[Rfam]
RNA sequence: GAGGAAUGACCGCAUGCUAAGAGCGAGGCGUCCUGCCUCAGGCGCAUGCAUUUGUACGUCCUGUACU
Numbered sequence: 001g002a003g004g005a006a007u008g009a010c011c012g013c014a015u016g017c018u019a020a021g022a023g024c025g026a027g028g029c030g031u032c033c034u035g036c037c038u039c040a041g042g043c044g045c046a047u048g049c050a051u052u053u054g055u056a057c058g059u060c061c062u063g064u065a066c067u
Stems, first nucleotide, its partner, number of pairs: 012049006025039005054066004
The record is a 67-nucleotide RNA sequence from Bacillus licheniformis, which matches "Bacillaceae-1 RNA" in Rfam. By type it is a small RNA. It is one of the family's seed sequences. The family's consensus secondary structure is taken from published work. Lineage of the source: Bacteria > Bacillati > Bacilli > Bacillaceae > Bacillus licheniformis.